[Rfam]
RNA: tRNA
RNA sequence: CAGAGGGUAGUUUAAUUUAGAAUCUUAGCUUUGGGAGUUAAGGGUGGGAGUUAAAAUCUCCUCUCUCUGA
Numbered sequence: 001c002a003g004a005g006g007g008u009a010g011u012u013u014a015a016u017u018u019a020g021a022a023u024c025u026u027a028g029c030u031u032u033g034g035g036a037g038u039u040a041a042g043g044g045u046g047g048g049a050g051u052u053a054a055a056a057u058c059u060c061c062u063c064u065c066u067c068u069g070a
Stems, first nucleotide, its partner, number of pairs: 001069007010023004025041005046062005